[Rfam]
RNA sequence: GGCGUAUUUUGCCAUGGCGGAGUCCGACCGCCGAUCGAAGCCAUGAUCGCCUUCAUCGACGAUCACCGCGCGGCCUACGGGGUCGAGCCGAUCUGCAAGGUGUUGCCGAUUGCCCCG
Numbered sequence: 001g002g003c004g005u006a007u008u009u010u011g012c013c014a015u016g017g018c019g020g021a022g023u024c025c026g027a028c029c030g031c032c033g034a035u036c037g038a039a040g041c042c043a044u045g046a047u048c049g050c051c052u053u054c055a056u057c058g059a060c061g062a063u064c065a066c067c068g069c070g071c072g073g074c075c076u077a078c079g080g081g082g083u084c085g086a087g088c089c090g091a092u093c094u095g096c097a098a099g100g101u102g103u104u105g106c107c108g109a110u111u112g113c114c115c116c117g
Stems, first nucleotide, its partner, number of pairs: 016032005078117005089112002092109002095106004
RNA: ALIL pseudoknot
Organism: Roseomonas acroporae